Overview: The record is a 540-nucleotide part of an RNA from Adhaeretor mobilis, which matches "Bacterial large subunit ribosomal RNA" in Rfam.

[Rfam]
RNA sequence: UAUGAAGGGCGUAUGGGGGAUGUCUUGGCAUCAGAAGGCGAUGAAGGGCGUGGAAGUCUGCGAAAAGCUCGGGGGAGUUGACAAACAAAUGAUGAUCCCGAGAUUCCUGAAUUGACGCAUUGUGAAUAAAUAACUUUGCGUGGCUAACGUGGGGAACUGAAACAUCUAAGUACCCACAGGAAUAGAAAGAAAAAUCGAUUACGUCAGUAGCGGCGAGCGAACGCGUAAUAGCCCAAACCGCGGGGGUUUCCCCUGCGGGGUUGUAGGGCUCUUCACAUGGGAGUCAUAAACUUGCUCAUUAAUAGAAUGGUCUGGAAAGGCCAACCACAGAGGGUGACAGUCCCGUACAUGAAAGUGAGCAAACUCCCGAGGAGUACCUGAGUAGGUCGGGCCACGUGGAAUCCCGACUGAAUCUACGAGGACCAUCUCGUAAGGCUAAAUACUCUCUGAUGACCGAUAGCAAACUCAGUAUGGUGACUGAAAGAUGAGAAGAACCCCUGUUAGGGGAGGAAUGUGAACCUGAAACCAUACGCCUACAAG
Numbered sequence: 001u002a003u004g005a006a007g008g009g010c011g012u013a014u015g016g017g018g019g020a021u022g023u024c025u026u027g028g029c030a031u032c033a034g035a036a037g038g039c040g041a042u043g044a045a046g047g048g049c050g051u052g053g054a055a056g057u058c059u060g061c062g063a064a065a066a067g068c069u070c071g072g073g074g075g076a077g078u079u080g081a082c083a084a085a086c087a088a089a090u091g092a093u094g095a096u097c098c099c100g101a102g103a104u105u106c107c108u109g110a111a112u113u114g115a116c117g118c119a120u121u122g123u124g125a126a127u128a129a130a131u132a133a134c135u136u137u138g139c140g141u142g143g144c145u146a147a148c149g150u151g152g153g154g155a156a157c158u159g160a161a162a163c164a165u166c167u168a169a170g171u172a173c174c175c176a177c178a179g180g181a182a183u184a185g186a187a188a189g190a191a192a193a194a195u196c197g198a199u200u201a202c203g204u205c206a207g208u209a210g211c212g213g214c215g216a217g218c219g220a221a222c223g224c225g226u227a228a229u230a231g232c233c234c235a236a237a238c239c240g241c242g243g244g245g246g247u248u249u250c251c252c253c254u255g256c257g258g259g260g261u262u263g264u265a266g267g268g269c270u271c272u273u274c275a276c277a278u279g280g281g282a283g284u285c286a287u288a289a290a291c292u293u294g295c296u297c298a299u300u301a302a303u304a305g306a307a308u309g310g311u312c313u314g315g316a317a318a319g320g321c322c323a324a325c326c327a328c329a330g331a332g333g334g335u336g337a338c339a340g341u342c343c344c345g346u347a348c349a350u351g352a353a354a355g356u357g358a359g360c361a362a363a364c365u366c367c368c369g370a371g372g373a374g375u376a377c378c379u380g381a382g383u384a385g386g387u388c389g390g391g392c393c394a395c396g397u398g399g400a401a402u403c404c405c406g407a408c409u410g411a412a413u414c415u416a417c418g419a420g421g422a423c424c425a426u427c428u429c430g431u432a433a434g435g436c437u438a439a440a441u442a443c444u445c446u447c448u449g450a451u452g453a454c455c456g457a458u459a460g461c462a463a464a465c466u467c468a469g470u471a472u473g474g475u476g477a478c479u480g481a482a483a484g485a486u487g488a489g490a491a492g493a494a495c496c497c498c499u500g501u502u503a504g505g506g507g508a509g510g511a512a513u514g515u516g517a518a519c520c521u522g523a524a525a526c527c528a529u530a531c532g533c534c535u536a537c538a539a540g
Stems, first nucleotide, its partner, number of pairs: 007535010022520001023485002027455002029452007036444002038144002046108003049062003068102007077090003115141005122134002148179001149177005159166002189196002199440001200227005210218002230437004238258007265379003270373005289365001292362009302350002308323005326330001332344003385409007416431005473478001495507004
Background: On this family, see Yusupov et al., Science 2001: "Crystal structure of the ribosome at 5.5 A resolution". It scores 2709 bits against the family's covariance model.